[Rfam]
Rfam assigns this 95-nucleotide sequence from Spinactinospora alkalitolerans to the family "TPP riboswitch aptamer (THI element)". The source organism's lineage runs through Bacteria, Bacillati, Actinomycetota, Actinomycetes and Spinactinospora.
RNA sequence: ACCAUGGGCGCGGGGUGCCGGAUCGGUCCGGCUGAGAGCACACCCGUGAACCUGAUCUAGGUAGUGCUAGCGAAGGGACGUCCUUGACCAGCUUC
Numbered sequence: 001a002c003c004a005u006g007g008g009c010g011c012g013g014g015g016u017g018c019c020g021g022a023u024c025g026g027u028c029c030g031g032c033u034g035a036g037a038g039c040a041c042a043c044c045c046g047u048g049a050a051c052c053u054g055a056u057c058u059a060g061g062u063a064g065u066g067c068u069a070g071c072g073a074a075g076g077g078a079c080g081u082c083c084u085u086g087a088c089c090a091g092c093u094u095c
Stems, first nucleotide, its partner, number of pairs: 006083005011046004016040001017032005051076003057070004
About the family: Vitamin B(1) in its active form thiamin pyrophosphate (TPP) is an essential coenzyme that is synthesised by coupling of pyrimidine and thiazole moieties in bacteria. A search with the family's covariance model found it, with a score of 66 bits. The base pairs follow the family's consensus structure, which is taken from published work.